A member of the RNA family "tRNA" from Clostridium perfringens, 87 nucleotides long.
[Rfam]
Nucleotides: 087
Base pairs, nucleotide, nucleotide: 001086002085003084004083005082006081007080010026011025012024028044029043030042031041032040063079064078065077066076067075
Number, partner (000 for none) and nucleotide at each position: 001086g002085g003084a004083g005082a006081g007080a008000u009000g010026u011025c012024c013000g014000a015000g016000u017000g018000g019000u020000c021000g022000a023000a024012g025011g026010a027000g028044c029043a030042c031041g032040c033000c034000u035000g036000g037000a038000a039000c040032g041031c042030g043029u044028g045000u046000g047000u048000a049000g050000g051000g052000g053000a054000a055000a056000c057000u058000c059000u060000a061000c062000c063079g064078a065077g066076g067075g068000u069000u070000c071000a072000a073000a074000u075067c076066c077065c078064u079063c080007u081006c082005u083004c084003u085002c086001c087000g